[Rfam]
RNA sequence: AAAAAAGCAGGGGUCUGUUGCCUAUGUGAACAGGCCUCUCAUAACCUUCAGGGAUAUAAUAACCAUUGUUCUUGGGUGAACCUCUGCUCAUUUUUUGUGACUGAAGGUUCAGUAAAUGAUGGAACAUGC
Numbered sequence: 001a002a003a004a005a006a007g008c009a010g011g012g013g014u015c016u017g018u019u020g021c022c023u024a025u026g027u028g029a030a031c032a033g034g035c036c037u038c039u040c041a042u043a044a045c046c047u048u049c050a051g052g053g054a055u056a057u058a059a060u061a062a063c064c065a066u067u068g069u070u071c072u073u074g075g076g077u078g079a080a081c082c083u084c085u086g087c088u089c090a091u092u093u094u095u096u097g098u099g100a101c102u103g104a105a106g107g108u109u110c111a112g113u114a115a116a117u118g119a120u121g122g123a124a125c126a127u128g129c
Stems, first nucleotide, its partner, number of pairs: 005048003011037002014034004063122008077111007
RNA: Small nucleolar RNA snoR74